[Rfam]
A member of the RNA family "L13-Bacteroidia ribosomal protein leader", 76 nucleotides long. On this family, see Eckert and Weinberg, BMC Microbiol 2020: "Discovery of 20 novel ribosomal leader candidates in bacteria and archaea". It is one of the family's seed sequences. By type it is a cis-regulatory leader.

RNA sequence: GGGGAGAGGCUUAGAAUCCCCGUGAAUCCUGGUGUGAAUAGUGGUGUCUUUGGCCGGGCACAACGGUUCGUGAAUC
Numbered sequence: 001g002g003g004g005a006g007a008g009g010c011u012u013a014g015a016a017u018c019c020c021c022g023u024g025a026a027u028c029c030u031g032g033u034g035u036g037a038a039u040a041g042u043g044g045u046g047u048c049u050u051u052g053g054c055c056g057g058g059c060a061c062a063a064c065g066g067u068u069c070g071u072g073a074a075u076c
Stems, first nucleotide, its partner, number of pairs: 001021005035070005041064002044061006
Dot-bracket structure: (((((...........))))).............(((((.((.((((((......)))))).)).)))))......